A member of the RNA family "Group II catalytic intron D1-D4-1" from Candidatus Acidiferrum panamense, 97 nucleotides long.
A reference for the family is Lehmann and Schmidt (2003), "Group II introns: structure and catalytic versatility of large natural ribozymes", Crit Rev Biochem Mol Biol.
NCBI's taxonomy places the organism under Bacteria, Pseudomonadati, Acidobacteriota, Terriglobia, Candidatus Acidiferrum.
Rfam describes the family as follows. Group II introns are found in rRNA, tRNA and mRNA of organelles in fungi, plants and protists, and also in mRNA in bacteria.
[Rfam]
RNA sequence: CUGAGGCGACCGUAAGGUCGUCUGACCGCGGAGCAGAAGUCAGCAGAGGGCAUAUUAGGUCCAGCCGUCGGCAAGGCUAGUGAGGCACUCCAAGGCU
Dot-bracket structure: .(.((((((((....)))))))).)..............((....)).(((......((.............................))....)))